The family of this 121-nucleotide RNA sequence from Nannospalax galili is "Small nucleolar RNA SNORA61".
RNA sequence: GCUCUCUGGUUCCCUUUCCCAUCAGAUCUCAACACUGGUCUUGAUGGUCGUAAAGGAGGGAGUACAUGCUGAAGCUGGCCCUACAGCCUUAUAUAAGCACGUGGCCUAGAUUUAAACAGGG
Numbered sequence: 001g002c003u004c005u006c007u008g009g010u011u012c013c014c015u016u017u018c019c020c021a022u023c024a025g026a027u028c029u030c031a032a033c034a035c036u037g038g039u040c041u042u043g044a045u046g047g048u049c050g051u052a053a054a055g056g057a058g059g060g061a062g063u064a065c066a067u068g069c070u071g072a073a074g075c076u077g078g079c080c081c082u083a084c085a086g087c088c089u090u091a092u093a094u095a096a097g098c099a100c101g102u103g104g105c106c107u108a109g110a111u112u113u114a115a116a117c118a119g120g121g
Stems, first nucleotide, its partner, number of pairs: 003059005019047005025040004075109004080104002090099001092097001

The family's RNA type in Rfam is H/ACA-box small nucleolar RNA. ACA61 is a member of the H/ACA class of snoRNA that guide the sites of modification of uridines to pseudouridines. Rfam links the family to the GO terms RNA processing and nucleolus.